[Rfam]
RNA sequence: UAUUGUCGUGAAUCUUGUUCGAAGCGUUGAUUUUAUUCGUAUCGAAUGUAAAGGCCGACAUAGAUAGAAUUCGACUUUUAUUUAUGAAAAAUCCACAAGUUUCAAUGAUUUUUCAAAGGGAUAAAUGUCGAACACU
Numbered sequence: 001u002a003u004u005g006u007c008g009u010g011a012a013u014c015u016u017g018u019u020c021g022a023a024g025c026g027u028u029g030a031u032u033u034u035a036u037u038c039g040u041a042u043c044g045a046a047u048g049u050a051a052a053g054g055c056c057g058a059c060a061u062a063g064a065u066a067g068a069a070u071u072c073g074a075c076u077u078u079u080a081u082u083u084a085u086g087a088a089a090a091a092u093c094c095a096c097a098a099g100u101u102u103c104a105a106u107g108a109u110u111u112u113u114c115a116a117a118g119g120g121a122u123a124a125a126u127g128u129c130g131a132a133c134a135c136u
Base pairs, nucleotide, nucleotide: 004060005059006058007057008056010055016048017047018046019045020044021043022042024040025039026038030034071131072130073129074128075127077125078124079123080122081120082119083118085115086114087113088112089111090110
The record is a 136-nucleotide sequence from Caenorhabditis remanei, which matches "Nematode snoRNA ceN105" in Rfam. Rfam 15.1 lists 12 matches to the family in 12 species. Taxonomically the source falls in Caenorhabditis (Eukaryota, Protostomia, Rhabditida, Rhabditina). The family's RNA type in Rfam is H/ACA-box small nucleolar RNA. Pairs were carried over by alignment from the consensus structure, which was predicted with RNAalifold.